[Rfam]
This 74-nucleotide RNA from Chinchilla lanigera belongs to the Rfam family "mir-1 microRNA precursor family". Its family is annotated with miRNA-mediated post-transcriptional gene silencing and RISC complex in the Gene Ontology. The organism belongs to Chinchilla, within Eukaryota. About the family: This family represents the microRNA (miRNA) mir-1 family. miRNAs are transcribed as ~70nt precursors (modelled here) and subsequently processed by the Dicer enzyme to give a ~22nt product. In this case the mature sequence comes from the 3' arm of the precursor. The extents of the hairpin precursors are not generally known and are estimated based on hairpin prediction. The products are thought to have regulatory roles through complementarity to mRNA. The involvement of Dicer in miRNA processing suggests a relationship with the phenomenon of RNA interference. miRNAs are numbered based on the sequence of the mature RNA. This family also contains the mir-206 from human, which appears to be related to mir-1. A reference for the family is Lee and Ambros (2001), "An extensive class of small RNAs in Caenorhabditis elegans", Science. It scores 75 bits against the family's covariance model.
RNA sequence: GCUUGGGGAACAUACUUCUUUAUAUGCCCAUAUGGACCUAAGCUAUGGAAUGUAAAGAAGUAUGUAUUUCAGGC
Numbered sequence: 001g002c003u004u005g006g007g008g009a010a011c012a013u014a015c016u017u018c019u020u021u022a023u024a025u026g027c028c029c030a031u032a033u034g035g036a037c038c039u040a041a042g043c044u045a046u047g048g049a050a051u052g053u054a055a056a057g058a059a060g061u062a063u064g065u066a067u068u069u070c071a072g073g074c
Base pairs, nucleotide, nucleotide: 007068008067010065011064012063013062014061015060016059017058018057019056020055021054022053023052024051025050028048029047030046031045032044